[Rfam]
RNA: c-di-AMP riboswitch aptamer (ydaO/yuaA leader)
Organism: Streptomyces sp. CB01635
RNA sequence: GCCGCACGGAUGCCAGGUCGACAGAAGUGGAUCGGCAGGAGUGGAGGACCCAGGCACGACGGGCCGCCGGAGCUGUUUUCCGGACCGGCCCUUGGGGUGAAGCCGCACUUCGCGGCCGGGCAACUUCGCCAGCCCGAAUCCGACAGGUCAUCCUUCACAGGCGGCUGACGAAGGGUUG
Numbered sequence: 001g002c003c004g005c006a007c008g009g010a011u012g013c014c015a016g017g018u019c020g021a022c023a024g025a026a027g028u029g030g031a032u033c034g035g036c037a038g039g040a041g042u043g044g045a046g047g048a049c050c051c052a053g054g055c056a057c058g059a060c061g062g063g064c065c066g067c068c069g070g071a072g073c074u075g076u077u078u079u080c081c082g083g084a085c086c087g088g089c090c091c092u093u094g095g096g097g098u099g100a101a102g103c104c105g106c107a108c109u110u111c112g113c114g115g116c117c118g119g120g121c122a123a124c125u126u127c128g129c130c131a132g133c134c135c136g137a138a139u140c141c142g143a144c145a146g147g148u149c150a151u152c153c154u155u156c157a158c159a160g161g162c163g164g165c166u167g168a169c170g171a172a173g174g175g176u177u178g
Stems, first nucleotide, its partner, number of pairs: 001162003041158006051094004095141003103115004118135004